[Rfam]
RNA: Group II catalytic intron D1-D4-3
Organism: Natranaerobius thermophilus
RNA sequence: UCACCGGUGACGGUGGAGUCUGAAGGAAGCUGAAGGGGGAAUUUGGAACAUAGCGAGAGCGAACCGAAGUUGGCCUUUUAGGUGGGUACCCUUACAAAUUAUGGGAAAGCCCAAAAGCUGAAUAACCUAAAAGGUUAAGACGGAUGCGUUCAAAUUCGAUUGUUUGAU
Numbered sequence: 001u002c003a004c005c006g007g008u009g010a011c012g013g014u015g016g017a018g019u020c021u022g023a024a025g026g027a028a029g030c031u032g033a034a035g036g037g038g039g040a041a042u043u044u045g046g047a048a049c050a051u052a053g054c055g056a057g058a059g060c061g062a063a064c065c066g067a068a069g070u071u072g073g074c075c076u077u078u079u080a081g082g083u084g085g086g087u088a089c090c091c092u093u094a095c096a097a098a099u100u101a102u103g104g105g106a107a108a109g110c111c112c113a114a115a116a117g118c119u120g121a122a123u124a125a126c127c128u129a130a131a132a133g134g135u136u137a138a139g140a141c142g143g144a145u146g147c148g149u150u151c152a153a154a155u156u157c158g159a160u161u162g163u164u165u166g167a168u
Stems, first nucleotide, its partner, number of pairs: 001016006029168001031166003036161002041155006049146003064143003073135003077131007084112004090105003